[Rfam]
Rfam assigns this 151-nucleotide RNA from Acinetobacter baumannii to the family "FMN riboswitch aptamer (RFN element)".

RNA sequence: CAUCGCUUCAGGGCGGGGUGUAAUUCCCCACCGGUGGUAAAGUUAAUUUUUAUUGUUAAAUUAACAAGCCCACGAGCUUAAAUUAUGUAAUUUGAGCAGAUUUGGUGAAACUCCAAAGCCGACGGUAUAGUCCGGAUGAAAGAAGACGACG
Numbered sequence: 001c002a003u004c005g006c007u008u009c010a011g012g013g014c015g016g017g018g019u020g021u022a023a024u025u026c027c028c029c030a031c032c033g034g035u036g037g038u039a040a041a042g043u044u045a046a047u048u049u050u051u052a053u054u055g056u057u058a059a060a061u062u063a064a065c066a067a068g069c070c071c072a073c074g075a076g077c078u079u080a081a082a083u084u085a086u087g088u089a090a091u092u093u094g095a096g097c098a099g100a101u102u103u104g105g106u107g108a109a110a111c112u113c114c115a116a117a118g119c120c121g122a123c124g125g126u127a128u129a130g131u132c133c134g135g136a137u138g139a140a141a142g143a144a145g146a147c148g149a150c151g
Stems, first nucleotide, its partner, number of pairs: 003149003006145004016028003030131002032121002034073004068119002076097003101117005123134003
Its family is annotated with FMN binding in the Gene Ontology. The base pairs follow the family's consensus structure, which is taken from published work. The source organism's lineage runs through Bacteria, Gammaproteobacteria, Moraxellaceae, Acinetobacter calcoaceticus/baumannii complex and Acinetobacter baumannii.